RNA sequence: CCUCCAUUUCUUGGCACACGUGUUUGGUUGCUCGGUACCCGCGUGUGAUUGUUCAGAGGCAGAGUGAUUUGUCGGCGCAAUGUCUUCGGUACCAGCGACCUUUCCCGUGUCCUGGUUCUAUCCUCAAUCGCCGACACAGUU
Number, nucleotide and partner (000 for none) at each position: 001c059002c058003u057004c056005c000006a000007u000008u000009u000010c000011u000012u000013g000014g000015c047016a046017c045018a044019c043020g042021u000022g040023u000024u000025u000026g039027g038028u037029u000030g000031c000032u000033c000034g000035g000036u000037a028038c027039c026040c022041g000042c020043g019044u018045g017046u016047g015048a000049u000050u000051g000052u000053u000054c000055a000056g004057a003058g002059g001060c000061a000062g000063a000064g000065u000066g000067a000068u000069u000070u000071g000072u000073c133074g132075g131076c130077g129078c000079a000080a000081u000082g000083u000084c000085u000086u000087c000088g000089g000090u000091a000092c115093c114094a113095g112096c000097g111098a110099c109100c000101u000102u000103u000104c000105c000106c000107g000108u000109g099110u098111c097112c095113u094114g093115g092116u000117u000118c000119u000120a000121u000122c000123c000124u000125c000126a000127a000128u000129c077130g076131c075132c074133g073134a000135c000136a000137c000138a000139g000140u000141u000
Small nucleolar RNA SNORA57: a 141-nucleotide sequence from Acipenser ruthenus. The family has 26 seed sequences and 1,736 matches in Rfam 15.1. From the family's description: U99 belongs to the H/ACA class of snoRNAs which are thought to guide the sites of modification of uridines to pseudouridines, the target for this family is unknown. It scores 90 bits against the family's covariance model. NCBI's taxonomy places the organism under Eukaryota, Eumetazoa, Teleostomi, Acipenserinae, Acipenser.